[Rfam]
RNA: FMN riboswitch aptamer (RFN element)
Organism: Planotetraspora silvatica
RNA sequence: AAGCGUGCUCCGGGGUCGGUGUAAUUCCGAACCGGCGGUGACACUCGCGAUCUCCACUGGAGGCCGACGGGUGGCAGUCCGCGACCCGGCCGAAGCCAUCGGCCGGUGGACCUGGUGAGACUCCAGGACCGACGGUGAAAGUCCGGAUGGGAGGAAGCGCGCGA
Numbered sequence: 001a002a003g004c005g006u007g008c009u010c011c012g013g014g015g016u017c018g019g020u021g022u023a024a025u026u027c028c029g030a031a032c033c034g035g036c037g038g039u040g041a042c043a044c045u046c047g048c049g050a051u052c053u054c055c056a057c058u059g060g061a062g063g064c065c066g067a068c069g070g071g072u073g074g075c076a077g078u079c080c081g082c083g084a085c086c087c088g089g090c091c092g093a094a095g096c097c098a099u100c101g102g103c104c105g106g107u108g109g110a111c112c113u114g115g116u117g118a119g120a121c122u123c124c125a126g127g128a129c130c131g132a133c134g135g136u137g138a139a140a141g142u143c144c145g146g147a148u149g150g151g152a153g154g155a156a157g158c159g160c161g162c163g164a
Stems, first nucleotide, its partner, number of pairs: 003162007010153001017029003031142002033131002035082004086106002111127005133145003